[Rfam]
RNA sequence: GUACUUCUCCAACACUUGCUAAUUGAGGCUACAAACAGAGACCCAGUAUCUCCAAAAGCCUUGGGAAAAGUCCCCAGACCAAGGGCAGAAAGUGUCCAGCAGUAGAUCACUGCAUCCUGGCCCCAGUCCUCUUUACCAGCCGUGAGGUCCUUGGACUGAGCUGAGGAUGGGUCAGGUGUUUGUCAUAGCACAGUCAUGCAAGUACUACCUAUGGGGUAGGAACUCAAUGGGGCUUAGUCAGGGGAAGUG
Numbered sequence: 001g002u003a004c005u006u007c008u009c010c011a012a013c014a015c016u017u018g019c020u021a022a023u024u025g026a027g028g029c030u031a032c033a034a035a036c037a038g039a040g041a042c043c044c045a046g047u048a049u050c051u052c053c054a055a056a057a058g059c060c061u062u063g064g065g066a067a068a069a070g071u072c073c074c075c076a077g078a079c080c081a082a083g084g085g086c087a088g089a090a091a092g093u094g095u096c097c098a099g100c101a102g103u104a105g106a107u108c109a110c111u112g113c114a115u116c117c118u119g120g121c122c123c124c125a126g127u128c129c130u131c132u133u134u135a136c137c138a139g140c141c142g143u144g145a146g147g148u149c150c151u152u153g154g155a156c157u158g159a160g161c162u163g164a165g166g167a168u169g170g171g172u173c174a175g176g177u178g179u180u181u182g183u184c185a186u187a188g189c190a191c192a193g194u195c196a197u198g199c200a201a202g203u204a205c206u207a208c209c210u211a212u213g214g215g216g217u218a219g220g221a222a223c224u225c226a227a228u229g230g231g232g233c234u235u236a237g238u239c240a241g242g243g244g245a246a247g248u249g
Base pairs, nucleotide, nucleotide: 002249003248004247005246006245007244008243009242010241014203015202016201017200018199019198023064024063025062026061027060028059029058038052039051040050041049068235069234070233072232073231074230075229084096085095086094087093097112098111099110102107114177115176116175118174119173120172121171122170126168127167128166129165137163138162139161140160147156148155149154205219206218207217208216209215210214
The record is a 249-nucleotide RNA from Mytilus coruscus, which matches "RNase MRP" in Rfam.
RNase MRP is an enzymatically active ribonucleoprotein with two distinct roles in eukaryotes.
It scores 132 bits against the family's covariance model.
NCBI's taxonomy places the organism under Eukaryota, Metazoa, Eumetazoa, Mytilinae, Mytilus.